A member of the RNA family "Pseudomonas sRNA P1" from Pseudomonas fluorescens, 180 nucleotides long. The source organism's lineage runs through Bacteria, Pseudomonadati, Gammaproteobacteria, Pseudomonadaceae and Pseudomonas fluorescens. Rfam's curators put it in the seed alignment. The family's consensus secondary structure was predicted with RNAalifold.
RNA sequence: ACCCCGGUAUUAUUGCUGUUAUGGGUUUGAUCCGAGCUUAGCCUUGUUCAUUUUUUUACACAACACCCCCGUAAAAAAUACAACACGGCCUGCUCAAGCCUGCGGGUGGCGCGUCCUUCACGGAUAAAAAAAUGCCCCAAAGUGCCCCAUAAAUGCCCUCGUGGCGCUUUUUCAGGGCAG
Dot-bracket structure: ......................((((((.....(.(....((((.(((...((((((((...........))))))))...)))).))).).)..))))))............................................................(.((.(.......).)).)
Numbered sequence: 001a002c003c004c005c006g007g008u009a010u011u012a013u014u015g016c017u018g019u020u021a022u023g024g025g026u027u028u029g030a031u032c033c034g035a036g037c038u039u040a041g042c043c044u045u046g047u048u049c050a051u052u053u054u055u056u057u058a059c060a061c062a063a064c065a066c067c068c069c070c071g072u073a074a075a076a077a078a079u080a081c082a083a084c085a086c087g088g089c090c091u092g093c094u095c096a097a098g099c100c101u102g103c104g105g106g107u108g109g110c111g112c113g114u115c116c117u118u119c120a121c122g123g124a125u126a127a128a129a130a131a132a133u134g135c136c137c138c139a140a141a142g143u144g145c146c147c148c149a150u151a152a153a154u155g156c157c158c159u160c161g162u163g164g165c166g167c168u169u170u171u172u173c174a175g176g177g178c179a180g
Stems, first nucleotide, its partner, number of pairs: 023101006034093001036091001041089003044085001046084003052078008162180001164178002167175001